[Rfam]
Nucleotides: 071
Base pairs, nucleotide, nucleotide: 001071002070003069004068005067006066
Number, partner (000 for none) and nucleotide at each position: 001071c002070u003069g004068u005067g006066a007000a008000g009000u010000g011000a012000u013000g014000g015000c016000c017000u018000u019000a020000c021000c022000a023000u024000c025000u026000u027000u028000c029000g030000g031000g032000a033000c034000u035000g036000a037000c038000c039000u040000g041000g042000a043000a044000u045000g046000g047000a048000g049000a050000g051000a052000a053000g054000c055000u056000u057000g058000c059000u060000c061000g062000c063000u064000g065000a066006u067005c068004a069003c070002a071001g